[Rfam]
RNA sequence: GUGAAACGGGUCAUGGUCUUGGGUCAAGAGUUAACCCAUAGACCAAGGCCCAAAAAUCUAU
Numbered sequence: 001g002u003g004a005a006a007c008g009g010g011u012c013a014u015g016g017u018c019u020u021g022g023g024u025c026a027a028g029a030g031u032u033a034a035c036c037c038a039u040a041g042a043c044c045a046a047g048g049c050c051c052a053a054a055a056a057u058c059u060a061u
Base pairs, nucleotide, nucleotide: 014045015044016043017042018041019040020038021037022036023035024034029059030058032056
This 61-nucleotide RNA from Cephalotus follicularis belongs to the Rfam family "Ma3 gene ribosomal frameshift signal". Rfam links the family to the GO term translational frameshifting. It is annotated as a frameshift element. A search with the family's covariance model found it, with a score of 35 bits. Pairs were carried over by alignment from the consensus structure, which is taken from published work. The organism belongs to Cephalotus, within Eukaryota.